Shown here is an 82-nucleotide sequence from Flavobacterium psychrotolerans, a member of the family "Flavo-1 RNA". It is annotated as a small RNA.

RNA sequence: GACUAGCCCCGAUGGAAGGGAAAUCCUUUUUGUCUCGUUUCUUUAACGAGACAAAAAGAUUGGAAUGACAGCGGGACAACUG
Numbered sequence: 001g002a003c004u005a006g007c008c009c010c011g012a013u014g015g016a017a018g019g020g021a022a023a024u025c026c027u028u029u030u031u032g033u034c035u036c037g038u039u040u041c042u043u044u045a046a047c048g049a050g051a052c053a054a055a056a057a058g059a060u061u062g063g064a065a066u067g068a069c070a071g072c073g074g075g076a077c078a079a080c081u082g
Stems, first nucleotide, its partner, number of pairs: 009074003013070002017066001022061004028056012